[Rfam]
RNA sequence: UCCUCGAACAACUGCGGGCAGAUGAAGUGCACAUGGGCGUCGACGGCCCCGGCGGUCAGGAUCCGGCCGUUGCCCGCGAUCACCUCCGUCUCCGGGCCGAUCACCAGAUCGGGGUGCACGCCGUCCAUGGUCUCGGGGUUCCCGGCCUUGCCGAGCGCGGUGAUCCGCCCGUCGCGGAUGCCGACGUCCGCCUUGACGACGCCCCAGUGGUCCAGCACCACCGCGCCGGUGAUGACGGUGUCCGGUGCGCCCUCGGCGCGCGGGACGCGGCUCUGGCCCAUCGACUCGCGGA
Number, nucleotide and partner (000 for none) at each position: 001u291002c000003c290004u000005c288006g287007a286008a000009c162010a000011a161012c160013u159014g158015c157016g074017g073018g000019c000020a070021g000022a000023u000024g000025a000026a000027g000028u054029g053030c052031a000032c051033a000034u000035g049036g048037g047038c046039g000040u000041c000042g000043a000044c000045g000046g038047c037048c036049c035050c000051g032052g030053c029054g028055g067056u066057c065058a000059g000060g000061a000062u000063c000064c000065g057066g056067c055068c000069g000070u020071u000072g000073c017074c016075c000076g151077c000078g000079a148080u000081c000082a000083c144084c000085u000086c000087c000088g140089u000090c138091u137092c136093c135094g134095g132096g131097c130098c000099g000100a000101u000102c129103a128104c000105c000106a000107g125108a124109u123110c000111g121112g000113g000114g000115u000116g000117c000118a000119c000120g000121c111122c000123g109124u108125c107126c000127a000128u103129g102130g097131u096132c095133u000134c094135g093136g092137g091138g090139u000140u088141c000142c000143c000144g083145g000146c000147c000148u079149u000150g000151c076152c000153g000154a000155g000156c000157g015158c014159g013160g012161u011162g009163a000164u000165c000166c000167g277168c000169c276170c275171g274172u000173c000174g271175c270176g000177g268178a000179u267180g266181c264182c263183g000184a000185c000186g000187u000188c000189c225190g224191c223192c000193u000194u220195g219196a000197c000198g000199a000200c000201g000202c000203c000204c000205c000206a000207g000208u000209g000210g000211u000212c000213c000214a000215g000216c000217a000218c000219c195220a194221c000222c000223g191224c190225g189226c000227c000228g000229g259230u000231g000232a000233u000234g254235a253236c000237g000238g252239u000240g250241u000242c000243c000244g000245g000246u000247g000248c000249g000250c240251c000252c238253u235254c234255g000256g000257c000258g000259c229260g000261c000262g000263g182264g181265a000266c180267g179268c177269g000270g175271c174272u000273c000274u171275g170276g169277c167278c000279c000280a000281u000282c000283g000284a000285c000286u007287c006288g005289c000290g003291g001292a000
Background: Shown here is a 292-nucleotide sequence from Streptacidiphilus pinicola, a member of the family "5' ureB small RNA". The family's consensus secondary structure was predicted with mfold.